[Rfam]
Rfam assigns this 100-nucleotide sequence from Lentibacillus sp. JNUCC-1 to the family "Purine riboswitch aptamer". Pairs were carried over by alignment from the consensus structure, which is taken from published work. Rfam's curators write: Riboswitches are metabolite binding domains within certain messenger RNAs that serve as precision sensors for their corresponding targets.
RNA sequence: CUGCAAAUUAAUUAGUUGCCUCAUAUAUUUUCGGGGAUAUGGCCUGAAAGUUUCUACCCGGCACCGUAAAUGCCGGACUAUGAGGGAAGAUGUUCAAAAA
Numbered sequence: 001c002u003g004c005a006a007a008u009u010a011a012u013u014a015g016u017u018g019c020c021u022c023a024u025a026u027a028u029u030u031u032c033g034g035g036g037a038u039a040u041g042g043c044c045u046g047a048a049a050g051u052u053u054c055u056a057c058c059c060g061g062c063a064c065c066g067u068a069a070a071u072g073c074c075g076g077a078c079u080a081u082g083a084g085g086g087a088a089g090a091u092g093u094u095c096a097a098a099a100a
Stems, first nucleotide, its partner, number of pairs: 019085007029049007058076006